Shown here is a 54-nucleotide RNA sequence from Streptomyces cacaoi, a member of the family "L17-Actino-Proteobacteria ribosomal protein leader". A reference for the family is Eckert and Weinberg (2020), "Discovery of 20 novel ribosomal leader candidates in bacteria and archaea", BMC Microbiol. The family's consensus secondary structure is taken from published work. Taxonomically the source falls in Streptomyces (Bacteria, Actinomycetota, Kitasatosporales, Streptomycetaceae). By type it is a cis-regulatory leader.

RNA sequence: CCCGGUACCUGGUACGGCCGGGGCUGCCGCCGGUUCCUGAUACGGCCGGCGCAG
Numbered sequence: 001c002c003c004g005g006u007a008c009c010u011g012g013u014a015c016g017g018c019c020g021g022g023g024c025u026g027c028c029g030c031c032g033g034u035u036c037c038u039g040a041u042a043c044g045g046c047c048g049g050c051g052c053a054g
Stems, first nucleotide, its partner, number of pairs: 001022006009016001024054003028051007